[Rfam]
RNA: Small nucleolar RNA SNORA5
Organism: Larimichthys crocea
RNA sequence: CGCAGCCUUGUCAAAUUCAGUGCGUCCUCCUCGGUGGAUGCCACUGGCCAAAACGGCUGCCACAGUGAAGGUGUAGUUCAUGGGCCCCACGGUGCUCCAACAUGGCCACUGGGGAUAAAUAUGUACUACACACAAGU
Number, nucleotide and partner (000 for none) at each position: 001c000002g060003c059004a058005g057006c000007c000008u000009u000010g000011u000012c000013a000014a000015a000016u000017u000018c046019a045020g044021u043022g042023c040024g039025u038026c037027c036028u000029c000030c000031u000032c000033g000034g000035u000036g027037g026038a025039u024040g023041c000042c022043a021044c020045u019046g018047g000048c000049c000050a000051a000052a000053a000054c000055g000056g000057c005058u004059g003060c002061c000062a000063c000064a000065g000066u000067g000068a000069a000070g000071g000072u000073g129074u128075a127076g126077u125078u123079c000080a000081u000082g000083g000084g000085c114086c113087c112088c111089a000090c000091g000092g000093u000094g000095c000096u000097c000098c000099a000100a000101c000102a000103u000104g000105g000106c000107c000108a000109c000110u000111g088112g087113g086114g085115a000116u000117a000118a000119a000120u000121a000122u000123g078124u000125a077126c076127u075128a074129c073130a000131c000132a000133c000134a000135a000136g000137u000